The family of this 139-nucleotide sequence from Melopsittacus undulatus is "Small nucleolar RNA SNORA5". Rfam describes the family as follows. ACA5 is a member of the H/ACA class of snoRNA that guide the sites of modification of uridines to pseudouridines. The family is grouped with related families in Rfam's "SNORA5 clan". It scores 68 bits against the family's covariance model.
[Rfam]
RNA sequence: UGCAGCCCUGUCAAAUUCGAUCCCUGCCUCCGCUGUGGUGGGGACCGGCCAACCGGCUGCCACAGCAACUUCUGUGGUCUGUGAGCUCCAUGUUCCCUUCCCAUGGGACACUGAGAACAAAAUCACACCACAGACACUG
Numbered sequence: 001u002g003c004a005g006c007c008c009u010g011u012c013a014a015a016u017u018c019g020a021u022c023c024c025u026g027c028c029u030c031c032g033c034u035g036u037g038g039u040g041g042g043g044a045c046c047g048g049c050c051a052a053c054c055g056g057c058u059g060c061c062a063c064a065g066c067a068a069c070u071u072c073u074g075u076g077g078u079c080u081g082u083g084a085g086c087u088c089c090a091u092g093u094u095c096c097c098u099u100c101c102c103a104u105g106g107g108a109c110a111c112u113g114a115g116a117a118c119a120a121a122a123u124c125a126c127a128c129c130a131c132a133g134a135c136a137c138u139g
Stems, first nucleotide, its partner, number of pairs: 002060004018047002021044008074131005086115003091110002